Record summary
U4 spliceosomal RNA: a 144-nucleotide RNA sequence from Jaapia argillacea. U4 small nuclear RNA (U4 snRNA) is a component of the major U2-dependent spliceosome. The family's RNA type in Rfam is spliceosomal small nuclear RNA. Taxonomically the source falls in Jaapia argillacea (Eukaryota, Opisthokonta, Fungi, Agaricomycetidae).

RNA sequence: UCUCUUGUGCUCGGGCACGUACUGUCGCUAGUGAGGUCUUUACCGAAGCACAGUCUUUUGCUAGUUGCAAAUUACACAUCCGAACACGUCUCUUGACUUCGGUCUUGGGCAAUUUUUGGCAACCAUUUCUCGCUUUUUUGUUGG
Dot-bracket structure: ....................(((((.(((.....(((....)))..)))))))).................................(.(((..(((....)))..))))............(((................)))
Numbered sequence: 001u002c003u004c005u006u007g008u009g010c011u012c013g014g015g016c017a018c019g020u021a022c023u024g025u026c027g028c029u030a031g032u033g034a035g036g037u038c039u040u041u042a043c044c045g046a047a048g049c050a051c052a053g054u055c056u057u058u059u060g061c062u063a064g065u066u067g068c069a070a071a072u073u074a075c076a077c078a079u080c081c082g083a084a085c086a087c088g089u090c091u092c093u094u095g096a097c098u099u100c101g102g103u104c105u106u107g108g109g110c111a112a113u114u115u116u117u118g119g120c121a122a123c124c125a126u127u128u129c130u131c132g133c134u135u136u137u138u139u140g141u142u143g144g
Stems, first nucleotide, its partner, number of pairs: 021054005027049003035044003088110001090109003095104003123144003